[Rfam]
Shown here is a 100-nucleotide RNA sequence from Hymenochirus boettgeri, a member of the family "mir-454 microRNA precursor family". The literature on the family includes a 2006 paper in Genome Res by Berezikov et al., "Many novel mammalian microRNA candidates identified by extensive cloning and RAKE analysis".
RNA sequence: UCCCCCCAACCUUAAGGAAGAGACCCUAUCAAUAUUGCCUCUGCUUUCUAUUAAGAGUAGUAGUGCAAUAUUGCUUAUAGGGUCUUUUUCUUGAGACUUC
Numbered sequence: 001u002c003c004c005c006c007c008a009a010c011c012u013u014a015a016g017g018a019a020g021a022g023a024c025c026c027u028a029u030c031a032a033u034a035u036u037g038c039c040u041c042u043g044c045u046u047u048c049u050a051u052u053a054a055g056a057g058u059a060g061u062a063g064u065g066c067a068a069u070a071u072u073g074c075u076u077a078u079a080g081g082g083u084c085u086u087u088u089u090c091u092u093g094a095g096a097c098u099u100c
Stems, first nucleotide, its partner, number of pairs: 020086010030073009041063005